A member of the RNA family "c-di-GMP-I riboswitch aptamer" from Erysipelatoclostridium sp. AM42-17, 86 nucleotides long. The family's consensus secondary structure is taken from published work. Rfam 15.1 lists 5,092 matches to the family in 1,772 species. A reference for the family is Weinberg et al. (2007), "Identification of 22 candidate structured RNAs in bacteria using the CMfinder comparative genomics pipeline", Nucleic Acids Res.
[Rfam]
RNA sequence: CAAAAAGAUAGGCAAGUCUAUUGAAAGAUAGUACACGCAAAGCUAGAGGGUCUAAGCAUGAAGAUGUAUGACAGCCAGUUGCAUUU
Numbered sequence: 001c002a003a004a005a006a007g008a009u010a011g012g013c014a015a016g017u018c019u020a021u022u023g024a025a026a027g028a029u030a031g032u033a034c035a036c037g038c039a040a041a042g043c044u045a046g047a048g049g050g051u052c053u054a055a056g057c058a059u060g061a062a063g064a065u066g067u068a069u070g071a072c073a074g075c076c077a078g079u080u081g082c083a084u085u086u
Stems, first nucleotide, its partner, number of pairs: 012038002017033001018031005041080004048076002050072003057066003